Shown here is a 134-nucleotide sequence from Heliornis fulica, a member of the family "Small nucleolar RNA SNORA56". By type it is an H/ACA-box small nucleolar RNA. Clan: SNORA56 clan. The match comes from Rfam's covariance-model search (81 bits). The organism belongs to Heliornis, within Eukaryota. Rfam describes the family as follows. ACA56 is a member of the H/ACA class of snoRNA that guide the sites of modification of uridines to pseudouridines.
RNA sequence: GAGCAGACAGUUAUCCCUUUCUAGCCUGUCCUUGUGGUUUUAGAGGGAGUCAGUCUGCUACAUGAAAUGAGGGAGGCCUUGCUGUUGCCCAGCCCAGCUGGUCCUGGUGCAGGCUGCAGGCCUUCCUUACACCC
Numbered sequence: 001g002a003g004c005a006g007a008c009a010g011u012u013a014u015c016c017c018u019u020u021c022u023a024g025c026c027u028g029u030c031c032u033u034g035u036g037g038u039u040u041u042a043g044a045g046g047g048a049g050u051c052a053g054u055c056u057g058c059u060a061c062a063u064g065a066a067a068u069g070a071g072g073g074a075g076g077c078c079u080u081g082c083u084g085u086u087g088c089c090c091a092g093c094c095c096a097g098c099u100g101g102u103c104c105u106g107g108u109g110c111a112g113g114c115u116g117c118a119g120g121c122c123u124u125c126c127u128u129a130c131a132c133c134c
Stems, first nucleotide, its partner, number of pairs: 003058006020044005025037002070127007078120003087114003094107004